[Rfam]
RNA sequence: GCACCGUUGGGAAGAGAAGACCCUAUGGAGUUUUACUGCAGCCAAUUCCUGAAGUAUUUUUUUAGAUGCAGAGUGUAGCUGGGAGCGGAGAUGCCGUGUUUUCGGACAUGGCGGAGCAACAAUGGAACACCAGCCUUCUAAAAGGAUAUUUCUAACUCGUCACUAGGUGGCGAGGACAUGUGUUGGUGGGCAGUUUCGGUGGGGCGCCAGACCUUGGAAAAGAUAUCCAAGGUACCCUAAGGUCAACUCAAUCGGAACAGAAACCCGAUGAAGAGUGGAAAGGCAAAAGUUGGCCUGAUGGGACCCUCGACAGCAAGGGGUCCCGAGACGAAAGUCUGGCUUAACGAUCCUUUACAGAAUUUUUGGUAGAUGGUAAAGGUGAUAGAAAAAUUACCCUAGGGGUAACAGAGUUGUCACGGGCAAGAGUCCAUAUCGACCCCGUGGCUUGCUUCCUCGAUGUCGGCUCUUCCUAUCCUGGCCGUGCACCAGCGGCCAAGGGUGGGGCUGUACGCCCAUUAAAAGGGAACGUGAGCUGGGUUUAGACCGUCGUGAGACAGGUCGGAUUCUAUCUAACGGUGCUGUU
Numbered sequence: 001g002c003a004c005c006g007u008u009g010g011g012a013a014g015a016g017a018a019g020a021c022c023c024u025a026u027g028g029a030g031u032u033u034u035a036c037u038g039c040a041g042c043c044a045a046u047u048c049c050u051g052a053a054g055u056a057u058u059u060u061u062u063u064a065g066a067u068g069c070a071g072a073g074u075g076u077a078g079c080u081g082g083g084a085g086c087g088g089a090g091a092u093g094c095c096g097u098g099u100u101u102u103c104g105g106a107c108a109u110g111g112c113g114g115a116g117c118a119a120c121a122a123u124g125g126a127a128c129a130c131c132a133g134c135c136u137u138c139u140a141a142a143a144g145g146a147u148a149u150u151u152c153u154a155a156c157u158c159g160u161c162a163c164u165a166g167g168u169g170g171c172g173a174g175g176a177c178a179u180g181u182g183u184u185g186g187u188g189g190g191c192a193g194u195u196u197c198g199g200u201g202g203g204g205c206g207c208c209a210g211a212c213c214u215u216g217g218a219a220a221a222g223a224u225a226u227c228c229a230a231g232g233u234a235c236c237c238u239a240a241g242g243u244c245a246a247c248u249c250a251a252u253c254g255g256a257a258c259a260g261a262a263a264c265c266c267g268a269u270g271a272a273g274a275g276u277g278g279a280a281a282g283g284c285a286a287a288a289g290u291u292g293g294c295c296u297g298a299u300g301g302g303a304c305c306c307u308c309g310a311c312a313g314c315a316a317g318g319g320g321u322c323c324c325g326a327g328a329c330g331a332a333a334g335u336c337u338g339g340c341u342u343a344a345c346g347a348u349c350c351u352u353u354a355c356a357g358a359a360u361u362u363u364u365g366g367u368a369g370a371u372g373g374u375a376a377a378g379g380u381g382a383u384a385g386a387a388a389a390a391u392u393a394c395c396c397u398a399g400g401g402g403u404a405a406c407a408g409a410g411u412u413g414u415c416a417c418g419g420g421c422a423a424g425a426g427u428c429c430a431u432a433u434c435g436a437c438c439c440c441g442u443g444g445c446u447u448g449c450u451u452c453c454u455c456g457a458u459g460u461c462g463g464c465u466c467u468u469c470c471u472a473u474c475c476u477g478g479c480c481g482u483g484c485a486c487c488a489g490c491g492g493c494c495a496a497g498g499g500u501g502g503g504g505c506u507g508u509a510c511g512c513c514c515a516u517u518a519a520a521a522g523g524g525a526a527c528g529u530g531a532g533c534u535g536g537g538u539u540u541a542g543a544c545c546g547u548c549g550u551g552a553g554a555c556a557g558g559u560c561g562g563a564u565u566c567u568a569u570c571u572a573a574c575g576g577u578g579c580u581g582u583u
Base pairs, nucleotide, nucleotide: 001579002578003577004576005575006574007573008572010571011570012569014566015565022400023399024398025397027396028395029392030391031390032389033388035194036193037192038191042186043185044184045183046182048180051152052151053150054149055148056147057146058145059144060143061142062141063140064139065138066137068135078134079133080132081131082130085117086116096109097108098107099106100105156174157173158172159171160170161169162168197210198208199207200206211233212232213231214230215229216228236339237338242294243293244292245291246290247289248274249273251269252268253267254266255265275284276283299325300324301323302322303321304320305319306318307317327336329334350378351377352376353375354374359371360370361369409450410449411448413447414444415443416442417441418440419439420438424434425433461536462534463533464532465531466528467525468524469523470522471521474499475498478493479492480491481490482489502514503513504512505511542560543559544558545557546555547554548553
A member of the RNA family "Archaeal large subunit ribosomal RNA" from Promethearchaeum syntrophicum, 583 nucleotides of a longer RNA. A search with the family's covariance model found it, with a score of 2507 bits. For this family Rfam cites "Crystal structure of the ribosome at 5.5 A resolution" (Yusupov et al., Science, 2001).